[Rfam]
RNA sequence: GAAUGUUGCCGCAAUAGUAAUUGAACUUAGUACGAGAGGAACAGUUCAUUCGGAUAAUUGGUUUUUGCGGCUGUCCGAUCGGGCAUUGCCGCGACGCUACCAUCCGCUGGAUUAUGGCUGAACGCCUCUAAGUCAGAAUCCAUGCUAGAACGCGGUGAUUCUUUUGCCUCACACAAGGUAGAUGGAUACGAAUAAGGCGUCCUUGUGGCGUCGCUGGACCAUAGCAGGCCGGCAACGGUGCUCUUGGCGGAAAGGCCUUGGGUGCUUGCCGGCGGAUUGCAAUGUCAUUUUGGGUGGGGAUAAAUCAUUUGCAUACGACUUGAAUGUACAACGGGGUAUUGUAAGCAGUAGAGUAGCCUUGUUGUUACGAUCUGCUGAGAUUAAGCCUUUGUUGUCUGAUUUGU
Numbered sequence: 001g002a003a004u005g006u007u008g009c010c011g012c013a014a015u016a017g018u019a020a021u022u023g024a025a026c027u028u029a030g031u032a033c034g035a036g037a038g039g040a041a042c043a044g045u046u047c048a049u050u051c052g053g054a055u056a057a058u059u060g061g062u063u064u065u066u067g068c069g070g071c072u073g074u075c076c077g078a079u080c081g082g083g084c085a086u087u088g089c090c091g092c093g094a095c096g097c098u099a100c101c102a103u104c105c106g107c108u109g110g111a112u113u114a115u116g117g118c119u120g121a122a123c124g125c126c127u128c129u130a131a132g133u134c135a136g137a138a139u140c141c142a143u144g145c146u147a148g149a150a151c152g153c154g155g156u157g158a159u160u161c162u163u164u165u166g167c168c169u170c171a172c173a174c175a176a177g178g179u180a181g182a183u184g185g186a187u188a189c190g191a192a193u194a195a196g197g198c199g200u201c202c203u204u205g206u207g208g209c210g211u212c213g214c215u216g217g218a219c220c221a222u223a224g225c226a227g228g229c230c231g232g233c234a235a236c237g238g239u240g241c242u243c244u245u246g247g248c249g250g251a252a253a254g255g256c257c258u259u260g261g262g263u264g265c266u267u268g269c270c271g272g273c274g275g276a277u278u279g280c281a282a283u284g285u286c287a288u289u290u291u292g293g294g295u296g297g298g299g300a301u302a303a304a305u306c307a308u309u310u311g312c313a314u315a316c317g318a319c320u321u322g323a324a325u326g327u328a329c330a331a332c333g334g335g336g337u338a339u340u341g342u343a344a345g346c347a348g349u350a351g352a353g354u355a356g357c358c359u360u361g362u363u364g365u366u367a368c369g370a371u372c373u374g375c376u377g378a379g380a381u382u383a384a385g386c387c388u389u390u391g392u393u394g395u396c397u398g399a400u401u402u403g404u
Stems, first nucleotide, its partner, number of pairs: 005159008015147004020050001022048006051106005059099003066093005072085005108142003115135005168298005174292003302402005308322001311319001328395006334388003338381002345375004350371001353368005
Eukaryotic large subunit ribosomal RNA: a 404-nucleotide part of an RNA from Zygotorulaspora mrakii. It scores 3346 bits against the family's covariance model.